[Rfam]
RNA sequence: ACCUUCUUGUAUAAGCACUGUGCUAAAAUUGCAGAAACUAGGAUUAUGUCUUGGUUUUUGUAAUAAUGCUAGCAGACUGCACACAAGAAGAAGAGUAAUUAACUGCUCUGGGUUCCAAAAACUGGGUGGACCUCUUUCCUAAGGUCCAGUGUCCUUUGUCAUAAGAUUCGGGGCAAUAAGU
Numbered sequence: 001a002c003c004u005u006c007u008u009g010u011a012u013a014a015g016c017a018c019u020g021u022g023c024u025a026a027a028a029u030u031g032c033a034g035a036a037a038c039u040a041g042g043a044u045u046a047u048g049u050c051u052u053g054g055u056u057u058u059u060g061u062a063a064u065a066a067u068g069c070u071a072g073c074a075g076a077c078u079g080c081a082c083a084c085a086a087g088a089a090g091a092a093g094a095g096u097a098a099u100u101a102a103c104u105g106c107u108c109u110g111g112g113u114u115c116c117a118a119a120a121a122c123u124g125g126g127u128g129g130a131c132c133u134c135u136u137u138c139c140u141a142a143g144g145u146c147c148a149g150u151g152u153c154c155u156u157u158g159u160c161a162u163a164a165g166a167u168u169c170g171g172g173g174c175a176a177u178a179a180g181u
Stems, first nucleotide, its partner, number of pairs: 019076001021074005028067004034058002037055008104175009124152001126150001127148004